[Rfam]
RNA sequence: UGGUCAUCACCAAGGAUUUUAGAAUGCAGUUUCUCAUUUGCGUGGACGUGACCAUAAAGAAAAAUUCCCAUGAGGUUUUUCAUAUGCUACUACCGGUUGGGAACAUGA
Number, nucleotide and partner (000 for none) at each position: 001u000002g000003g052004u051005c050006a049007u048008c000009a000010c045011c044012a043013a000014g000015g000016a000017u000018u000019u000020u000021a000022g000023a000024a000025u000026g041027c040028a039029g038030u000031u000032u000033c000034u000035c000036a000037u000038u029039u028040g027041c026042g000043u012044g011045g010046a000047c000048g007049u006050g005051a004052c003053c000054a000055u000056a000057a000058a000059g000060a000061a000062a000063a000064a000065u000066u000067c101068c100069c099070a098071u000072g000073a000074g094075g093076u092077u000078u000079u000080u000081c000082a000083u000084a000085u000086g000087c000088u000089a000090c000091u000092a076093c075094c074095g000096g000097u000098u070099g069100g068101g067102a000103a000104c000105a000106u000107g000108a000
The family of this 108-nucleotide sequence from Mus musculus is "Small nucleolar RNA SNORA32". Rfam's curators write: ACA32 is a member of the H/ACA class of snoRNA that guide the sites of modification of uridines to pseudouridines. The base pairs follow the family's consensus structure, which was predicted with RNAfold. It is annotated as an H/ACA-box small nucleolar RNA.